[Rfam]
RNA sequence: GGUCAUGAGUGCCAGUGACAAGCCCCGGCUCGCUGGUCGGCAACCCUCCACCACGGUGGGGUGCUCCGGGUGACGACCCGGCCGUGUUCGACCGGACACGGCAAGCGUGGAUC
Numbered sequence: 001g002g003u004c005a006u007g008a009g010u011g012c013c014a015g016u017g018a019c020a021a022g023c024c025c026c027g028g029c030u031c032g033c034u035g036g037u038c039g040g041c042a043a044c045c046c047u048c049c050a051c052c053a054c055g056g057u058g059g060g061g062u063g064c065u066c067c068g069g070g071u072g073a074c075g076a077c078c079c080g081g082c083c084g085u086g087u088u089c090g091a092c093c094g095g096a097c098a099c100g101g102c103a104a105g106c107g108u109g110g111a112u113c
Stems, first nucleotide, its partner, number of pairs: 001078004009038001011037006021030002039065003044061003048056002081102009
A member of the RNA family "SAM (S-adenosyl methionine) riboswitch aptamer" from Gordonia amarae, 113 nucleotides long.
Rfam describes the family as follows. SAM-IV is a mRNA element that regulates gene expression via direct sensing of S-adenosylmethionine (SAM or AdoMet). SAM-IV riboswitches share conserved nucleotide positions with the previously described SAM-I riboswitches sequence analysis and molecular recognition experiments suggest that SAM-I and SAM-IV riboswitches share similar ligand binding sites, but have different scaffolds.
It scores 112 bits against the family's covariance model.